[Rfam]
RNA sequence: GGGGUCAGAAGAGGAGCGUUAACCAGGUAGUUAUUAUUGUUUUAGGUGACUAAAACAUGGAGAUCAAACUCCAGUAAUAAUAAUGAGGGGGAUUAACGCCGAGAUAAAGCCAUAUUUGAUGAUGGUUUUGUCGGUUGUUUAUUGCCAAGUGUGUAAAGCAUACUAACAAUAUUGGGCUGAAUCCCAGCAACUGUCACUAUUACCUAAUAGAUUAGGUAAAUGAGUGGAGAGCUUCUGGCCUU
Numbered sequence: 001g002g003g004g005u006c007a008g009a010a011g012a013g014g015a016g017c018g019u020u021a022a023c024c025a026g027g028u029a030g031u032u033a034u035u036a037u038u039g040u041u042u043u044a045g046g047u048g049a050c051u052a053a054a055a056c057a058u059g060g061a062g063a064u065c066a067a068a069c070u071c072c073a074g075u076a077a078u079a080a081u082a083a084u085g086a087g088g089g090g091g092a093u094u095a096a097c098g099c100c101g102a103g104a105u106a107a108a109g110c111c112a113u114a115u116u117u118g119a120u121g122a123u124g125g126u127u128u129u130g131u132c133g134g135u136u137g138u139u140u141a142u143u144g145c146c147a148a149g150u151g152u153g154u155a156a157a158g159c160a161u162a163c164u165a166a167c168a169a170u171a172u173u174g175g176g177c178u179g180a181a182u183c184c185c186a187g188c189a190a191c192u193g194u195c196a197c198u199a200u201u202a203c204c205u206a207a208u209a210g211a212u213u214a215g216g217u218a219a220a221u222g223a224g225u226g227g228a229g230a231g232c233u234u235c236u237g238g239c240c241u242u
Base pairs, nucleotide, nucleotide: 006237007236008235009234010233011232016099017098018097019096020095021094022093024091030084031083032082033081034080035079036078037077038076039075040074041073103132104131105130106129107128108127109126110125111124112123113122133192134191135190136189137188138187194227195226196225197224198223
Shown here is a 242-nucleotide RNA sequence from Litorilituus lipolyticus, a member of the family "Lysine riboswitch aptamer". Riboswitches are metabolite binding domains within certain messenger RNAs that serve as precision sensors for their corresponding targets. The match comes from Rfam's covariance-model search (73 bits).